[Rfam]
RNA sequence: GAUAACUGUUGGACAUGAAGACUGAAACAACUCAUAGAGUGUGUGUUGUCUAGCUGAAGCUUAUUCUUUUAUAAUUAAUGAGACUGGUGUCUAAUAACAGCAUUACAUUU
Numbered sequence: 001g002a003u004a005a006c007u008g009u010u011g012g013a014c015a016u017g018a019a020g021a022c023u024g025a026a027a028c029a030a031c032u033c034a035u036a037g038a039g040u041g042u043g044u045g046u047u048g049u050c051u052a053g054c055u056g057a058a059g060c061u062u063a064u065u066c067u068u069u070u071a072u073a074a075u076u077a078a079u080g081a082g083a084c085u086g087g088u089g090u091c092u093a094a095u096a097a098c099a100g101c102a103u104u105a106c107a108u109u110u
Stems, first nucleotide, its partner, number of pairs: 043103006059090002062087001065083004

This 110-nucleotide RNA from Papaver somniferum belongs to the Rfam family "Small nucleolar RNA snoR97". Its family is annotated with RNA processing and nucleolus in the Gene Ontology. It is annotated as an H/ACA-box small nucleolar RNA.